Rfam assigns this 96-nucleotide RNA from Comamonas aquatica to the family "Bacterial small signal recognition particle RNA". Gene Ontology terms of the family: SRP-dependent cotranslational protein targeting to membrane, signal sequence recognition and signal recognition particle, plasma membrane targeting. It is annotated as a non-coding RNA gene. The source organism's lineage runs through Bacteria, Burkholderiales, Comamonadaceae, Comamonas and Comamonas aquatica. From the family's description: The signal recognition particle (SRP) is a universally conserved ribonucleoprotein involved in the co-translational targeting of proteins to membranes.

[Rfam]
RNA sequence: GACAGGCCCCCUCGCAUGGGGAAGCAGCCAACCGGGUCAGGUGGGGAACCAAGCAGCCCUAACUGUGAAACCAGUGCCGAGGUAAGGCUUGUCAAC
Numbered sequence: 001g002a003c004a005g006g007c008c009c010c011c012u013c014g015c016a017u018g019g020g021g022a023a024g025c026a027g028c029c030a031a032c033c034g035g036g037u038c039a040g041g042u043g044g045g046g047a048a049c050c051a052a053g054c055a056g057c058c059c060u061a062a063c064u065g066u067g068a069a070a071c072c073a074g075u076g077c078c079g080a081g082g083u084a085a086g087g088c089u090u091g092u093c094a095a096c
Base pairs, nucleotide, nucleotide: 004090005089006088007087008086010082011081012080013079014078015074017073018072019071024066025065026064027063034059035058036057037056042051043050044049